[Rfam]
RNA sequence: GGCGAUAAACGCGCCCGUAAUAAGCGGCUCGGACCCGGGGGCGGUACCCGGCGGCUCCACCAACUUCCCUCAUUGGCUGGGAACAAGGGGCCGAAAUAGGAUCGACGGACGUCUAAAGGGGUUAGCUUUCGCUCGGUGAGGUACCACCGUUAUCGGUCCAAGCAUGAUAGUUGCCAAUGACAACCGUGCUCCGGUCGCCGUUGCUGCGUAA
Number, nucleotide and partner (000 for none) at each position: 001g133002g132003c131004g130005a129006u000007a000008a000009a000010c000011g000012c000013g122014c121015c120016c119017g000018u000019a000020a000021u000022a000023a000024g000025c111026g110027g000028c000029u108030c107031g106032g000033a000034c000035c051036c050037g049038g048039g047040g000041g000042c000043g000044g000045u000046a000047c039048c038049c037050g036051g035052c093053g092054g091055c090056u089057c088058c087059a000060c000061c000062a000063a000064c000065u000066u000067c000068c000069c000070u000071c000072a000073u000074u000075g000076g000077c000078u000079g000080g000081g000082a000083a000084c000085a000086a000087g058088g057089g056090g055091c054092c053093g052094a000095a000096a000097u000098a000099g000100g000101a000102u000103c000104g000105a000106c031107g030108g029109a000110c026111g025112u000113c000114u000115a000116a000117a000118g000119g016120g015121g014122u013123u000124a000125g000126c000127u000128u000129u005130c004131g003132c002133u001134c149135g148136g147137u146138g000139a000140g000141g000142u000143a000144c000145c000146a137147c136148c135149g134150u000151u000152a000153u000154c000155g000156g000157u000158c000159c000160a000161a000162g000163c000164a000165u000166g000167a000168u000169a000170g000171u000172u000173g000174c000175c000176a000177a000178u000179g000180a000181c000182a000183a000184c000185c000186g000187u000188g000189c000190u000191c000192c000193g000194g000195u000196c000197g000198c000199c000200g000201u000202u000203g000204c000205u000206g000207c000208g000209u000210a000211a000

A member of the RNA family "permuted transfer-messenger RNA" from Pacificitalea manganoxidans, 211 nucleotides long. The family's RNA type in Rfam is non-coding RNA gene.